RNA sequence: CUUGACGGCACCCAGCCACAGCGGCUGCCCCUCCGGCCGCCCCUGGCCGUAGGUGGCCAGCAGGGCCUGCGCCUC
Numbered sequence: 001c002u003u004g005a006c007g008g009c010a011c012c013c014a015g016c017c018a019c020a021g022c023g024g025c026u027g028c029c030c031c032u033c034c035g036g037c038c039g040c041c042c043c044u045g046g047c048c049g050u051a052g053g054u055g056g057c058c059a060g061c062a063g064g065g066c067c068u069g070c071g072c073c074u075c
Stems, first nucleotide, its partner, number of pairs: 014026004031071001033069001038065001043060003047056003

The record is a 75-nucleotide RNA sequence from Streptomyces zinciresistens, which matches "ASpks TB sRNA" in Rfam. Lineage of the source: Bacteria > Actinomycetes > Streptomycetaceae > Streptomyces > Streptomyces zinciresistens. The family's consensus secondary structure is taken from published work. The family has 77 seed sequences and 9,052 matches in Rfam 15.1. A search with the family's covariance model found it, with a score of 81 bits. The literature on the family includes a 2009 paper in Mol Microbiol by Arnvig and Young, "Identification of small RNAs in Mycobacterium tuberculosis".